[Rfam]
This 52-nucleotide sequence from Phreatobacter aquaticus belongs to the Rfam family "serC leader". A reference for the family is Corbino et al. (2005), "Evidence for a second class of S-adenosylmethionine riboswitches and other regulatory RNA motifs in alpha-proteobacteria", Genome Biol. By type it is a cis-regulatory leader. Its family is annotated with regulation of gene expression in the Gene Ontology. The pairing is the family consensus, mapped onto this sequence. This family is a putative regulatory RNA structure that is found upstream of the serC-serA operon in some alpha-proteobacteria.
RNA sequence: CCGCGGGACAUACCCCCCCAACGGGGUACGCCCAUCUGUGAGGAUGGAGAUC
Numbered sequence: 001c002c003g004c005g006g007g008a009c010a011u012a013c014c015c016c017c018c019c020a021a022c023g024g025g026g027u028a029c030g031c032c033c034a035u036c037u038g039u040g041a042g043g044a045u046g047g048a049g050a051u052c
Stems, first nucleotide, its partner, number of pairs: 011028006032047006